[Rfam]
RNA sequence: UGAAUUAAAAAGGCGCCAGGACAGAUUCAGUUUAAAAGCUUAUCUGUUGACGAGGUGAAGGAAGCGGUUCAGCCAAGGCUGGAGCGUAUCGAAAGAUUCGGCGGAUACCUUCCGGUUGUUACAAUCGAAAGAGACCGGGAAUAUUGAAUAUUCCCAUACAAAAGUUGCAGGUGACUGCAAAACAAAAAGGUCUCACGUAACUAA
Numbered sequence: 001u002g003a004a005u006u007a008a009a010a011a012g013g014c015g016c017c018a019g020g021a022c023a024g025a026u027u028c029a030g031u032u033u034a035a036a037a038g039c040u041u042a043u044c045u046g047u048u049g050a051c052g053a054g055g056u057g058a059a060g061g062a063a064g065c066g067g068u069u070c071a072g073c074c075a076a077g078g079c080u081g082g083a084g085c086g087u088a089u090c091g092a093a094a095g096a097u098u099c100g101g102c103g104g105a106u107a108c109c110u111u112c113c114g115g116u117u118g119u120u121a122c123a124a125u126c127g128a129a130a131g132a133g134a135c136c137g138g139g140a141a142u143a144u145u146g147a148a149u150a151u152u153c154c155c156a157u158a159c160a161a162a163a164g165u166u167g168c169a170g171g172u173g174a175c176u177g178c179a180a181a182a183c184a185a186a187a188a189g190g191u192c193u194c195a196c197g198u199a200a201c202u203a204a
Stems, first nucleotide, its partner, number of pairs: 020048007057112005065100003113127006131194006144180003
This 204-nucleotide RNA sequence from Ruminiclostridium hungatei belongs to the Rfam family "glmS glucosamine-6-phosphate activated ribozyme aptamer". Rfam classes the family as a riboswitch.